[Rfam]
RNA sequence: UGAGACCUCUUGAUGGCCGCGGCACACUUCGGUGUGCUGAGGAACUUCCGGGCUCCACAGAGCACGAUGGCGGAUAACGUCCGCCCAGGGUGACCUGAGAGAGAGCGCAGCAGAGAACAGACCGCCCGGUUUCGGUCGGGUAAGGGUGAAACGGCGGUGUAAGAGACCACCGGGCCGCUGGUAACAGUCGGUCGCACGGCAAGCCUCAUCGGGAGCAAGGCCAAGCAGAAGGCACGUCGAUGCAAGUCGACAGGGGUUGCUCGCCCACGCCUUCGGGUAGGCUGCUAGAGCCUGGCGGCGACGUCAGGUCGAGAUGGAUGGCCAUCCAUGUGGCGACACAUGACAAAACCCGGGGUAUAAGAGGUCUCAUCUU
Numbered sequence: 001u002g003a004g005a006c007c008u009c010u011u012g013a014u015g016g017c018c019g020c021g022g023c024a025c026a027c028u029u030c031g032g033u034g035u036g037c038u039g040a041g042g043a044a045c046u047u048c049c050g051g052g053c054u055c056c057a058c059a060g061a062g063c064a065c066g067a068u069g070g071c072g073g074a075u076a077a078c079g080u081c082c083g084c085c086c087a088g089g090g091u092g093a094c095c096u097g098a099g100a101g102a103g104a105g106c107g108c109a110g111c112a113g114a115g116a117a118c119a120g121a122c123c124g125c126c127c128g129g130u131u132u133c134g135g136u137c138g139g140g141u142a143a144g145g146g147u148g149a150a151a152c153g154g155c156g157g158u159g160u161a162a163g164a165g166a167c168c169a170c171c172g173g174g175c176c177g178c179u180g181g182u183a184a185c186a187g188u189c190g191g192u193c194g195c196a197c198g199g200c201a202a203g204c205c206u207c208a209u210c211g212g213g214a215g216c217a218a219g220g221c222c223a224a225g226c227a228g229a230a231g232g233c234a235c236g237u238c239g240a241u242g243c244a245a246g247u248c249g250a251c252a253g254g255g256g257u258u259g260c261u262c263g264c265c266c267a268c269g270c271c272u273u274c275g276g277g278u279a280g281g282c283u284g285c286u287a288g289a290g291c292c293u294g295g296c297g298g299c300g301a302c303g304u305c306a307g308g309u310c311g312a313g314a315u316g317g318a319u320g321g322c323c324a325u326c327c328a329u330g331u332g333g334c335g336a337c338a339c340a341u342g343a344c345a346a347a348a349c350c351c352g353g354g355g356u357a358u359a360a361g362a363g364g365u366c367u368c369a370u371c372u373u
Stems, first nucleotide, its partner, number of pairs: 001369010012326007020039008044356003048353005053215004060262004065211005070084005085099001086097004100206002105204002107200002122145002124141007153171002156168003172195001173193005178187003219283004228274006254266004290309008
Rfam assigns this 373-nucleotide RNA from Bifidobacterium mongoliense to the family "Bacterial RNase P class A". The base pairs follow the family's consensus structure, which is taken from published work.